[Rfam]
RNA: mir-1827 microRNA precursor family
Organism: Homo sapiens
RNA sequence: UCAGCAGCACAGCCUUCAGCCUAAAGCAAUGAGAAGCCUCUGAAAGGCUGAGGCAGUAGAUUGAAU
Numbered sequence: 001u002c003a004g005c006a007g008c009a010c011a012g013c014c015u016u017c018a019g020c021c022u023a024a025a026g027c028a029a030u031g032a033g034a035a036g037c038c039u040c041u042g043a044a045a046g047g048c049u050g051a052g053g054c055a056g057u058a059g060a061u062u063g064a065a066u
Stems, first nucleotide, its partner, number of pairs: 005063003008059001009057002012054004017050006027042002031040003